[Rfam]
RNA: Small nucleolar RNA snoR2/U65
RNA sequence: GGUCCGAUGCCACGUCGCCGGUAGCCAUUGGCGAUGACCGGCGAUGCUAUGAUUGGACCGAUAUCAAUCUAUGUUUCGCAUGCUGAUAGGAACCUGUGGAUCAGGUUUAUGCCGUUGAUCUACGGAGCCGAUUUUUUGCGAUUACAUUU
Numbered sequence: 001g002g003u004c005c006g007a008u009g010c011c012a013c014g015u016c017g018c019c020g021g022u023a024g025c026c027a028u029u030g031g032c033g034a035u036g037a038c039c040g041g042c043g044a045u046g047c048u049a050u051g052a053u054u055g056g057a058c059c060g061a062u063a064u065c066a067a068u069c070u071a072u073g074u075u076u077c078g079c080a081u082g083c084u085g086a087u088a089g090g091a092a093c094c095u096g097u098g099g100a101u102c103a104g105g106u107u108u109a110u111g112c113c114g115u116u117g118a119u120c121u122a123c124g125g126a127g128c129c130g131a132u133u134u135u136u137u138g139c140g141a142u143u144a145c146a147u148u149u
Stems, first nucleotide, its partner, number of pairs: 002058007009050001013046006020039003024032003076141005089129002094125003098121005